The record is a 136-nucleotide RNA from Vibrio genomosp. F10, which matches "Histidine operon leader" in Rfam. It scores 77 bits against the family's covariance model. The organism belongs to Vibrio, within Bacteria. The family's RNA type in Rfam is cis-regulatory leader. On this family, see Kolter and Yanofsky, Annu Rev Genet 1982: "Attenuation in amino acid biosynthetic operons".
[Rfam]
RNA sequence: UCAUCACCAUCAUCACCCUAUCUAGUCUUUCGGGGAGAUAUACGCAUACCCGGGAGGCAGAAGCUCCCGGAGGUGAAAUUGGUAAAACAAGAUUCAAACCCUCGGGAGACAUGCAGUCUCCCGAGGGUUUUUUAGU
Numbered sequence: 001u002c003a004u005c006a007c008c009a010u011c012a013u014c015a016c017c018c019u020a021u022c023u024a025g026u027c028u029u030u031c032g033g034g035g036a037g038a039u040a041u042a043c044g045c046a047u048a049c050c051c052g053g054g055a056g057g058c059a060g061a062a063g064c065u066c067c068c069g070g071a072g073g074u075g076a077a078a079u080u081g082g083u084a085a086a087a088c089a090a091g092a093u094u095c096a097a098a099c100c101c102u103c104g105g106g107a108g109a110c111a112u113g114c115a116g117u118c119u120c121c122c123g124a125g126g127g128u129u130u131u132u133u134a135g136u
Base pairs, nucleotide, nucleotide: 009047010046012039013038014037017034018033019032049070050069052068053067054066055065056064096130097129098128099127100126101125102124103123104122105121106120107119108118109117110116